Small nucleolar RNA snoR99: a 104-nucleotide RNA from Thalictrum thalictroides.
The family's RNA type in Rfam is H/ACA-box small nucleolar RNA.
The base pairs follow the family's consensus structure, which was predicted with WAR.

[Rfam]
RNA sequence: GUGCCAUGGUGAUGAAUGAGUCCCAUAUUAAACCUUUAUCCAUUCAUUUCACUUUGUCAGCAAUCUUCUUGUUUACUUGUUGAUCAUUACAGAAUGGAAGUUUU
Numbered sequence: 001g002u003g004c005c006a007u008g009g010u011g012a013u014g015a016a017u018g019a020g021u022c023c024c025a026u027a028u029u030a031a032a033c034c035u036u037u038a039u040c041c042a043u044u045c046a047u048u049u050c051a052c053u054u055u056g057u058c059a060g061c062a063a064u065c066u067u068c069u070u071g072u073u074u075a076c077u078u079g080u081u082g083a084u085c086a087u088u089a090c091a092g093a094a095u096g097g098a099a100g101u102u103u104u
Base pairs, nucleotide, nucleotide: 039098040097041096042095043094044093056084057083058082059081060080061079062078063077